[Rfam]
RNA: Purine riboswitch aptamer
Organism: Aquisalibacillus elongatus
RNA sequence: AAUAACAUUGAACGGAUACUUCAUAUAUACUCGCUAAUACGGUGCGAGAGUUUCUACCAGGUUGCCAUUAACAACCUGACUAUGAAGGUUAGAAUGAUAUGU
Numbered sequence: 001a002a003u004a005a006c007a008u009u010g011a012a013c014g015g016a017u018a019c020u021u022c023a024u025a026u027a028u029a030c031u032c033g034c035u036a037a038u039a040c041g042g043u044g045c046g047a048g049a050g051u052u053u054c055u056a057c058c059a060g061g062u063u064g065c066c067a068u069u070a071a072c073a074a075c076c077u078g079a080c081u082a083u084g085a086a087g088g089u090u091a092g093a094a095u096g097a098u099a100u101g102u
Base pairs, nucleotide, nucleotide: 019087020086021085022084023083024082025081030048031047032046033045034044058078059077060076061075062074063073064072